[Rfam]
RNA sequence: UACCUGGUUGAUUCUGCCAGUAGCAUGUGCUUGUCUCAAAGAUCAAGCCAUGCAAGUCUAAGUACACACAGCCGGUACAGUGAAACUGCAAAUGGCUCAUUAAAUCAGUUAUGGUUCCUUUGAUCGCUCUACCGUUACUUGGAUAACUGUGGCAAUUCCAGAGCUAAUACAUGCAAACGAAAGCUGACCUCCGGGGAUGCGCGCAUUUAUCAGACCCAAAAACCCAUGCGGGGUGGCCCCUUGGGGCGCCCCAGUCGCUUUGGUGACUUUAGAUAACCUCGAGCCGAAAGCUGGCCCCCCGUGGCGGCGACGUCUCAUUCGAAUGUCUGCCCUAUCAACUUUCGAUGGUACUUUCUGUGCCUACCAUGGUGACCAUGGGUAACGGGGAAUCAGGGUUCGAUUCCAGAGAAUCCAAGGAAGGCAGCAGACACGCAAAUUACCCACUCCCAACUCGGGGAGGUAGCGGCGAAAAAUAAUACAGGACUCUUUCAAGGCCCUGUAAUUGGAAUGAGCACACUUUAAAUCCUUUAACGAGGAUCAACUGAAGGACAAGUCUGGUGCCAGCAACCGCAGUAAUUAAAGCUCCAAUAGUGUAUCUUA
Numbered sequence: 001u002a003c004c005u006g007g008u009u010g011a012u013u014c015u016g017c018c019a020g021u022a023g024c025a026u027g028u029g030c031u032u033g034u035c036u037c038a039a040a041g042a043u044c045a046a047g048c049c050a051u052g053c054a055a056g057u058c059u060a061a062g063u064a065c066a067c068a069c070a071g072c073c074g075g076u077a078c079a080g081u082g083a084a085a086c087u088g089c090a091a092a093u094g095g096c097u098c099a100u101u102a103a104a105u106c107a108g109u110u111a112u113g114g115u116u117c118c119u120u121u122g123a124u125c126g127c128u129c130u131a132c133c134g135u136u137a138c139u140u141g142g143a144u145a146a147c148u149g150u151g152g153c154a155a156u157u158c159c160a161g162a163g164c165u166a167a168u169a170c171a172u173g174c175a176a177a178c179g180a181a182a183g184c185u186g187a188c189c190u191c192c193g194g195g196g197a198u199g200c201g202c203g204c205a206u207u208u209a210u211c212a213g214a215c216c217c218a219a220a221a222a223c224c225c226a227u228g229c230g231g232g233g234u235g236g237c238c239c240c241u242u243g244g245g246g247c248g249c250c251c252c253a254g255u256c257g258c259u260u261u262g263g264u265g266a267c268u269u270u271a272g273a274u275a276a277c278c279u280c281g282a283g284c285c286g287a288a289a290g291c292u293g294g295c296c297c298c299c300c301g302u303g304g305c306g307g308c309g310a311c312g313u314c315u316c317a318u319u320c321g322a323a324u325g326u327c328u329g330c331c332c333u334a335u336c337a338a339c340u341u342u343c344g345a346u347g348g349u350a351c352u353u354u355c356u357g358u359g360c361c362u363a364c365c366a367u368g369g370u371g372a373c374c375a376u377g378g379g380u381a382a383c384g385g386g387g388a389a390u391c392a393g394g395g396u397u398c399g400a401u402u403c404c405a406g407a408g409a410a411u412c413c414a415a416g417g418a419a420g421g422c423a424g425c426a427g428a429c430a431c432g433c434a435a436a437u438u439a440c441c442c443a444c445u446c447c448c449a450a451c452u453c454g455g456g457g458a459g460g461u462a463g464c465g466g467c468g469a470a471a472a473a474u475a476a477u478a479c480a481g482g483a484c485u486c487u488u489u490c491a492a493g494g495c496c497c498u499g500u501a502a503u504u505g506g507a508a509u510g511a512g513c514a515c516a517c518u519u520u521a522a523a524u525c526c527u528u529u530a531a532c533g534a535g536g537a538u539c540a541a542c543u544g545a546a547g548g549a550c551a552a553g554u555c556u557g558g559u560g561c562c563a564g565c566a567a568c569c570g571c572a573g574u575a576a577u578u579a580a581a582g583c584u585c586c587a588a589u590a591g592u593g594u595a596u597c598u599u600a
Base pairs, nucleotide, nucleotide: 004020005019006018007017008016022599023598025596026595027594028593029592030591031590034471036469037468041431047429049427051426052425053424056089057088061087062086063085068081069080096408097407098406106329107328108327111324112323115322116321121317122316123315138173140171141170147163148162150160151159152158183200184199188195189194207276208275209274210273211272222264223263224262290308291307294305295304296303331379332378333377338370339369340368345367346366347365348364349363350362384404385403386402387398388397389396390395411418412417437462439461440460441459445457446456447455448454474505475504476503477501478500479499480498481497482496484493485492512532514529516528543587544586546584547583555582556581564571565570